Annotation: Plastid-psbA-3 3UTR RNA: a 57-nucleotide RNA sequence. Pairs were carried over by alignment from the consensus structure, which was predicted with LocARNA. A reference for the family is Richter et al. (2023), "Retrograde signaling in plants: A critical review focusing on the GUN pathway and beyond", Plant Commun. By type it is a cis-regulatory element. Plastid psbA-3 is a non-coding RNA (ncRNA) present in plastids. It was identified in inverted repeat sequences in the 3 prime untranslate region (3UTR) of photosystem II quinone-binding protein (psbA).

RNA sequence: AAAAGGAGAAAUACCUCCCUCUUAAUAGAACAAGAGGGAGGUAUUUCUCCCUUUUUU
Dot-bracket structure: .((.(((((((((((...(((((........)))))...))))))))))).))....